[Rfam]
RNA sequence: CAUUUUUAAUCAUGUGAUACUCAUAUAAUCCUUAGAAUAAGGCUAAGACGUUUCUACCAUCUAACCGUAAAUUAGAUGACUAUGAGUAAAUUAGGGUGUCAC
Numbered sequence: 001c002a003u004u005u006u007u008a009a010u011c012a013u014g015u016g017a018u019a020c021u022c023a024u025a026u027a028a029u030c031c032u033u034a035g036a037a038u039a040a041g042g043c044u045a046a047g048a049c050g051u052u053u054c055u056a057c058c059a060u061c062u063a064a065c066c067g068u069a070a071a072u073u074a075g076a077u078g079a080c081u082a083u084g085a086g087u088a089a090a091u092u093a094g095g096g097u098g099u100c101a102c
Stems, first nucleotide, its partner, number of pairs: 018088008031047005058078007
The record is a 102-nucleotide sequence from Abyssicoccus albus, which matches "Purine riboswitch aptamer" in Rfam. Pairs were carried over by alignment from the consensus structure, which is taken from published work.